RNA sequence: UGGACCAGUGAUGAGAAAGGGUUUAUGAACAAAGGAGCGUGAUUAACCCAGUUCUGUACCGAAUACUGAGGUCCAUU
Numbered sequence: 001u002g003g004a005c006c007a008g009u010g011a012u013g014a015g016a017a018a019g020g021g022u023u024u025a026u027g028a029a030c031a032a033a034g035g036a037g038c039g040u041g042a043u044u045a046a047c048c049c050a051g052u053u054c055u056g057u058a059c060c061g062a063a064u065a066c067u068g069a070g071g072u073c074c075a076u077u
Stems, first nucleotide, its partner, number of pairs: 001075006